[Rfam]
RNA: Small nucleolar RNA SNORD56
Organism: Urocolius indicus
RNA sequence: CUGCGAUGAUGGGACAAUUUUUCGUCAGCAGCAUCUCACCGUGUGUGAAUGGUGACACCUCAGGGCUGAGCAG
Dot-bracket structure: .(((...((((...........))))...........................................))).